The record is an 82-nucleotide RNA from Sulfobacillus thermosulfidooxidans, which matches "Fluoride riboswitch aptamer (crcB RNA motif)" in Rfam.
The organism belongs to Sulfobacillus thermosulfidooxidans, within Bacteria.
The family has 289 seed sequences and 2,293 matches in Rfam 15.1.
RNA sequence: UAAACACCAGGCGAUGGAUUCCGCCUUGGACCCUAGGUCCAGAACCUCCGUGCAUAGUGCGGAUAAUGACUCCUGCCAGAUU
Dot-bracket structure: .........((((..[[[.[[)))).....................((((((.....))))))....]].]]].........
Numbered sequence: 001u002a003a004a005c006a007c008c009a010g011g012c013g014a015u016g017g018a019u020u021c022c023g024c025c026u027u028g029g030a031c032c033c034u035a036g037g038u039c040c041a042g043a044a045c046c047u048c049c050g051u052g053c054a055u056a057g058u059g060c061g062g063a064u065a066a067u068g069a070c071u072c073c074u075g076c077c078a079g080a081u082u
Stems, first nucleotide, its partner, number of pairs: 010025004016073003020069002047063006